[Rfam]
Shown here is a 153-nucleotide RNA from Salvia splendens, a member of the family "U4 spliceosomal RNA".
For this family Rfam cites "Structures of the human pre-catalytic spliceosome and its precursor spliceosome" (Zhan et al., Cell Res, 2018).
U4 small nuclear RNA (U4 snRNA) is a component of the major U2-dependent spliceosome.
A search with the family's covariance model found it, with a score of 105 bits.
RNA sequence: AUCUUUGCGCUUGGGGCAAUGAUGCAGCUAGUGAGGUUCUAACCGAGGCGCGUCUAUUGCUGGUUGAAAACUAUUUCCAAACCCCCUCUUCAACCUGAGCUUGACUCGGGUGGUUGAGAAUUUCUGGAAGGGUGCCCUAUUUUGGGUAUCGCC
Numbered sequence: 001a002u003c004u005u006u007g008c009g010c011u012u013g014g015g016g017c018a019a020u021g022a023u024g025c026a027g028c029u030a031g032u033g034a035g036g037u038u039c040u041a042a043c044c045g046a047g048g049c050g051c052g053u054c055u056a057u058u059g060c061u062g063g064u065u066g067a068a069a070a071c072u073a074u075u076u077c078c079a080a081a082c083c084c085c086c087u088c089u090u091c092a093a094c095c096u097g098a099g100c101u102u103g104a105c106u107c108g109g110g111u112g113g114u115u116g117a118g119a120a121u122u123u124c125u126g127g128a129a130g131g132g133u134g135c136c137c138u139a140u141u142u143u144g145g146g147u148a149u150c151g152c153c
Base pairs, nucleotide, nucleotide: 021054022053023052024051025050027049028048029047035044036043037042086118087117088116091113093111094110095109096108097107098106099105131153132152133151134150